MIR5298 microRNA precursor family: a 91-nucleotide RNA sequence from Medicago truncatula. The base pairs follow the family's consensus structure, which was predicted with RNAalifold. The match comes from Rfam's covariance-model search (78 bits).
[Rfam]
RNA sequence: UUAGGUUUUCUUCAAUUUCUUCUGGAAUUUUUCUCAGAUUUUUGUUGUUGAAGGUUGAUGGAGAUGAUACGAAGAUGAAGAAAAUGAAGAA
Numbered sequence: 001u002u003a004g005g006u007u008u009u010c011u012u013c014a015a016u017u018u019c020u021u022c023u024g025g026a027a028u029u030u031u032u033c034u035c036a037g038a039u040u041u042u043u044g045u046u047g048u049u050g051a052a053g054g055u056u057g058a059u060g061g062a063g064a065u066g067a068u069a070c071g072a073a074g075a076u077g078a079a080g081a082a083a084a085u086g087a088a089g090a091a
Stems, first nucleotide, its partner, number of pairs: 005085010016074004037056007